[Rfam]
RNA sequence: GUAUUAUCAAGAGUUCUCUUUAAGCACUUCAUACGACACCAUUAUUUAUAGGGUUGUUGUGAAGUGUUUGGAGGAACUCUCGGUGUCAU
Dot-bracket structure: ....((((..(((((((.((.((((((((((((..(..................)..)))))))))))))).)))))))..))))....
Shown here is an 89-nucleotide RNA, a member of the family "mir-395 microRNA precursor family".
The sequence is in the family's curated seed alignment.
A reference for the family is Jones-Rhoades and Bartel (2004), "Computational Identification of Plant MicroRNAs and Their Targets, Including a Stress-Induced miRNA", Mol Cell.
Its family is annotated with miRNA-mediated post-transcriptional gene silencing and RISC complex in the Gene Ontology.
mir-395 was identified in both Arabidopsis thaliana and Oryza sativa computationally and was later experimentally verified. mir-395 is thought to target mRNAs coding for ATP sulphurylases.
Pairs were carried over by alignment from the consensus structure, which was predicted with PFOLD.